[Rfam]
RNA sequence: UACGAAAAGCAGAAGCGCCCGCUUCUCACCUGACCGACUUGCGUUGGCUGGUAUGGGAUCCAUAACAUCAUCAAUCUCGACUUUUGAUGCGAUCUUGGAAGAUGUGGGCUGAAGAAGCUUACAUCUUUUUUUAGUUGU
Numbered sequence: 001u002a003c004g005a006a007a008a009g010c011a012g013a014a015g016c017g018c019c020c021g022c023u024u025c026u027c028a029c030c031u032g033a034c035c036g037a038c039u040u041g042c043g044u045u046g047g048c049u050g051g052u053a054u055g056g057g058a059u060c061c062a063u064a065a066c067a068u069c070a071u072c073a074a075u076c077u078c079g080a081c082u083u084u085u086g087a088u089g090c091g092a093u094c095u096u097g098g099a100a101g102a103u104g105u106g107g108g109c110u111g112a113a114g115a116a117g118c119u120u121a122c123a124u125c126u127u128u129u130u131u132u133a134g135u136u137g138u
Base pairs, nucleotide, nucleotide: 011026012025013024014023015022016021028052029051030050034047035046036045037044038043101125102124103123104122105121106120107119108118109117110116

Description:
A member of the RNA family "Ribosomal protein L20 leader" from Paenibacillus contaminans, 138 nucleotides long. Rfam describes the family as follows. This family is a putative r-protein leader autoregulatory structure found in B. subtilis and other low-GC Gram-positive bacteria. NCBI's taxonomy places the organism under Bacteria, Bacillota, Bacilli, Caryophanales, Paenibacillus. The match comes from Rfam's covariance-model search (65 bits). Gene Ontology term of the family: regulation of gene expression. The family's consensus secondary structure was predicted with CMfinder.